[Rfam]
RNA: Glycine riboswitch aptamer
RNA sequence: CGUCACCUUGCUGGAGAGAGGCCGCACCGUCGAGCUGCGGCCCACCGAAGGAGCAAGCCUCGACGCGAGGUGAAUCUCUCAGGUAAAGCGGACAGCACGGGCCCG
Numbered sequence: 001c002g003u004c005a006c007c008u009u010g011c012u013g014g015a016g017a018g019a020g021g022c023c024g025c026a027c028c029g030u031c032g033a034g035c036u037g038c039g040g041c042c043c044a045c046c047g048a049a050g051g052a053g054c055a056a057g058c059c060u061c062g063a064c065g066c067g068a069g070g071u072g073a074a075u076c077u078c079u080c081a082g083g084u085a086a087a088g089c090g091g092a093c094a095g096c097a098c099g100g101g102c103c104c105g
Stems, first nucleotide, its partner, number of pairs: 006100002009097005020042007044084003047080002051078003057071004